[Rfam]
RNA sequence: GUCCCUAUAGUUUAACUGGAUAAAACUGCCGCCUCCUAAGCGGCUGCUCCAGGUUCGAGUCCUGGUAGGGACG
Dot-bracket structure: (((((((..((((.........)))).(((((.......)))))....(((((.......)))))))))))).
Numbered sequence: 001g002u003c004c005c006u007a008u009a010g011u012u013u014a015a016c017u018g019g020a021u022a023a024a025a026c027u028g029c030c031g032c033c034u035c036c037u038a039a040g041c042g043g044c045u046g047c048u049c050c051a052g053g054u055u056c057g058a059g060u061c062c063u064g065g066u067a068g069g070g071a072c073g
Stems, first nucleotide, its partner, number of pairs: 001072007010026004028044005049065005
Overview:
The record is a 73-nucleotide sequence from Endozoicomonas sp. G2_1, which matches "tRNA" in Rfam. The family's consensus secondary structure is taken from published work. By type it is a transfer RNA.